[Rfam]
Rfam assigns this 131-nucleotide sequence from Acer saccharum to the family "Small nucleolar RNA snoR111". The base pairs follow the family's consensus structure, which was predicted with WAR. For this family Rfam cites "Experimental RNomics: identification of 140 candidates for small non-messenger RNAs in the plant Arabidopsis thaliana" (Marker et al., Curr Biol, 2002).
Nucleotides: 131
Base pairs, nucleotide, nucleotide: 006037007036009034011033013030014029015028016027017026018025067127068126070124071123072122073121076115077114078113079112085110086109087108088107089106090105091104094102
Number, partner (000 for none) and nucleotide at each position: 001000a002000a003000a004000a005000u006037g007036a008000a009034u010000g011033g012000a013030g014029a015028g016027a017026c018025a019000g020000a021000u022000u023000g024000g025018u026017g027016u028015c029014u030013c031000u032000u033011c034009a035000c036007u037006c038000u039000g040000a041000a042000g043000a044000a045000c046000a047000g048000g049000a050000g051000g052000u053000a054000g055000a056000u057000c058000a059000a060000a061000a062000u063000c064000a065000a066000c067127g068126g069000c070124c071123g072122a073121g074000a075000u076115a077114u078113c079112g080000u081000u082000u083000c084000a085110g086109u087108c088107g089106u090105c091104a092000c093000u094102u095000u096000c097000u098000a099000u100000c101000c102094a103000u104091u105090g106089a107088c108087g109086a110085u111000u112079c113078g114077a115076u116000u117000g118000u119000u120000g121073c122072u123071c124070g125000u126068c127067c128000a129000c130000a131000u
Source information
Rfam 15.1 lists 533 matches to the family in 223 species. It scores 101 bits against the family's covariance model. Lineage of the source: Eukaryota > Viridiplantae > Euphyllophyta > malvids > Acer.